[Rfam]
RNA sequence: GUGGCAGCUUGGUUGUCAUAUGUGUGAUGACACUUUCUAAAGUCUUCCAGAAUGACACCACAUAUAUGGCAGCUAAACUGUUAC
Dot-bracket structure: .((((((.......((((((((.(((..(.((....((..........))..)).)..))).)))))))).......)))))).
RNA: mir-489 microRNA precursor family
Organism: Mus musculus